The family of this 137-nucleotide RNA sequence from Cohnella candida is "c-di-AMP riboswitch aptamer (ydaO/yuaA leader)". The match comes from Rfam's covariance-model search (88 bits). Rfam describes the family as follows. This family represents a conserved RNA structure found upstream of the ydaO and yuaA genes in Bacillus subtilis and related genes in other bacteria.

RNA sequence: AGACAUUCCAAGCCGAAGUCCGCUAUCGGACACGGGGGACCCAAGAAUGGGGUGAAGCCGCAUGCAGCAUGUGCGGCCGGGGCUACUCUUUGACCCGAACCCGUCAGCUAACCUCGCAGGCACGACAAAGGGAGGAA
Number, nucleotide and partner (000 for none) at each position: 001a000002g000003a000004c000005a000006u000007u000008c000009c000010a000011a000012g121013c120014c119015g000016a000017a000018g031019u030020c029021c000022g000023c000024u000025a000026u000027c000028g000029g020030a019031c018032a000033c116034g115035g114036g113037g112038g000039a000040c000041c000042c049043a048044a000045g000046a000047a000048u043049g042050g102051g101052g100053u000054g000055a000056a000057g000058c076059c075060g074061c073062a072063u071064g000065c000066a000067g000068c000069a000070u000071g063072u062073g061074c060075g059076g058077c000078c000079g096080g095081g094082g000083c000084u000085a000086c000087u000088c000089u000090u000091u000092g000093a000094c081095c080096c079097g000098a000099a000100c052101c051102c050103g000104u000105c000106a000107g000108c000109u000110a000111a000112c037113c036114u035115c034116g033117c000118a000119g014120g013121c012122a000123c000124g000125a000126c000127a000128a000129a000130g000131g000132g000133a000134g000135g000136a000137a000

Lineage of the source: Bacteria > Bacillati > Caryophanales > Paenibacillaceae > Cohnella.